[Rfam]
RNA sequence: CCGUACAGCAUUCGGGUUUCGCGAUGAUUGAACCGUAUGUAUAGGUUCGUUGUCGACGAAAUCUGCAAAAUGUACGG
Numbered sequence: 001c002c003g004u005a006c007a008g009c010a011u012u013c014g015g016g017u018u019u020c021g022c023g024a025u026g027a028u029u030g031a032a033c034c035g036u037a038u039g040u041a042u043a044g045g046u047u048c049g050u051u052g053u054c055g056a057c058g059a060a061a062u063c064u065g066c067a068a069a070a071u072g073u074a075c076g077g
Stems, first nucleotide, its partner, number of pairs: 001077006013065009030048005
Rfam assigns this 77-nucleotide sequence from Leptidea sinapis to the family "mir-981 microRNA precursor family". The organism belongs to Leptidea, within Eukaryota. Gene Ontology terms of the family: RISC complex and miRNA-mediated post-transcriptional gene silencing. It scores 72 bits against the family's covariance model.